[Rfam]
RNA sequence: GAUGCCUGCCCUUCGUGGGCGUUUCCUCCCUAGACUUCGGGCCGCUCGCAAGGGUGGCCUUUUUUGUAUCCGGC
Numbered sequence: 001g002a003u004g005c006c007u008g009c010c011c012u013u014c015g016u017g018g019g020c021g022u023u024u025c026c027u028c029c030c031u032a033g034a035c036u037u038c039g040g041g042c043c044g045c046u047c048g049c050a051a052g053g054g055u056g057g058c059c060u061u062u063u064u065u066g067u068a069u070c071c072g073g074c
Stems, first nucleotide, its partner, number of pairs: 008020004040059008
RNA: Makes More Granules Regulator RNA (mmgR)
Organism: Methylobacterium nodulans